[Rfam]
RNA sequence: ACCCUAAAAAGGCAAAGCCAUUGAAAAAUGGUGACGCAAAGCUAUAGGGACUAAAGCAGCCGGACCGAACGAACGGUUCGCUGCAAUGUCAGCCAGCUUCUGAA
Numbered sequence: 001a002c003c004c005u006a007a008a009a010a011g012g013c014a015a016a017g018c019c020a021u022u023g024a025a026a027a028a029u030g031g032u033g034a035c036g037c038a039a040a041g042c043u044a045u046a047g048g049g050a051c052u053a054a055a056g057c058a059g060c061c062g063g064a065c066c067g068a069a070c071g072a073a074c075g076g077u078u079c080g081c082u083g084c085a086a087u088g089u090c091a092g093c094c095a096g097c098u099u100c101u102g103a104a
Base pairs, nucleotide, nucleotide: 012037013036017032018031019030020029021028022027040098041097042096043095047094048093049090050089051088056084057083058082059081
RNA: c-di-GMP-I riboswitch aptamer